[Rfam]
RNA: ybhL leader
RNA sequence: CAGGCAUGCUGAGGCUUCGCAGCGGCGCCCGGGAUAUCCCGACACCGUAAAUUCUCCGGAGCUUUC
Numbered sequence: 001c002a003g004g005c006a007u008g009c010u011g012a013g014g015c016u017u018c019g020c021a022g023c024g025g026c027g028c029c030c031g032g033g034a035u036a037u038c039c040c041g042a043c044a045c046c047g048u049a050a051a052u053u054c055u056c057c058g059g060a061g062c063u064u065u066c
Stems, first nucleotide, its partner, number of pairs: 012064008023047003030041004